The record is a 35-nucleotide RNA from Rudanella paleaurantiibacter, which matches "DUF805b RNA" in Rfam. Taxonomically the source falls in Rudanella (Bacteria, Bacteroidota, Cytophagia, Cytophagales). Its Rfam clan is "DUF805 clan". Pairs were carried over by alignment from the consensus structure, which is taken from published work. The match comes from Rfam's covariance-model search (40 bits).
RNA sequence: AAGCAGGCAGCCGAAAAUGCUGAUCAGAGUAGGCA
Numbered sequence: 001a002a003g004c005a006g007g008c009a010g011c012c013g014a015a016a017a018u019g020c021u022g023a024u025c026a027g028a029g030u031a032g033g034c035a
Stems, first nucleotide, its partner, number of pairs: 002021004010034003